[Rfam]
RNA sequence: GCUCUGCUGUUUCUACGGGGCAGCAGGCCGGUGCUAAUCAGGUGCCAGCCAUCAAGCCCAGCUUCGGCAAACUCAUGUCCGAGUGGUGGCAAUGGCAGGGAGUAGCUCAUCGAAACCUGCCGUCACC
Numbered sequence: 001g002c003u004c005u006g007c008u009g010u011u012u013c014u015a016c017g018g019g020g021c022a023g024c025a026g027g028c029c030g031g032u033g034c035u036a037a038u039c040a041g042g043u044g045c046c047a048g049c050c051a052u053c054a055a056g057c058c059c060a061g062c063u064u065c066g067g068c069a070a071a072c073u074c075a076u077g078u079c080c081g082a083g084u085g086g087u088g089g090c091a092a093u094g095g096c097a098g099g100g101a102g103u104a105g106c107u108c109a110u111c112g113a114a115a116c117c118u119g120c121c122g123u124c125a126c127c
Base pairs, nucleotide, nucleotide: 001028002027004026005025006024007023008022009021010020012019013018061068062067083127086126087125088124089123090122096119097118098117099116105111
RNA: Bacteriophage Diversity-Generating Retroelement RNA